[Rfam]
RNA sequence: AGCCGAACUAGGUCGGGGAGCUAGGCACUCUCUGUUACCCGAAGUCUAUACGCGGGGACGACAGCCUGAAAAGGUCAACUUAGCCUCUGCAAAGCCUUUGGUAAGCAAUGAAACUCUAUCCUCAUGGAUCGGGGUUUUGUUCAGUCAGACUCAAAGGAGAUUGCCUGAACAAUUCAUCUGGUGAAUCCGCCAGGUCCGGAAGGGAGCAACGGUAACCAGAACUUUCGAUGCUGUGAGGGGACUGGGGUAGAGUAAAUCAAGGGGUAAACUUUGCAGGACGUUAAGCCCGAUUCAGGCAUGUUCGGUA
Dot-bracket structure: .(((((((...(((((((((.......))))))....((((...........)))))))....(((((((..((.(...(.(...(((((((((((((((((..((......((((((.(((((((((((((((..((((((((.(((.(((....))).))).))))))))....((((((....(((.....(((....))).....)))..)))))).))).)))).))))))))....))))))...))..)))))))).....)))))))))...).).).))..)))))))..))))))).

Shown here is a 307-nucleotide sequence from Thermoplasmatales archaeon E-plasma, a member of the family "Archaeal signal recognition particle RNA". Rfam links the family to the GO terms signal recognition particle, plasma membrane targeting and SRP-dependent cotranslational protein targeting to membrane, signal sequence recognition. It is annotated as a non-coding RNA gene. For this family Rfam cites "Towards the structure of the mammalian signal recognition particle" (Wild et al., Curr Opin Struct Biol, 2002). The base pairs follow the family's consensus structure, which is taken from published work.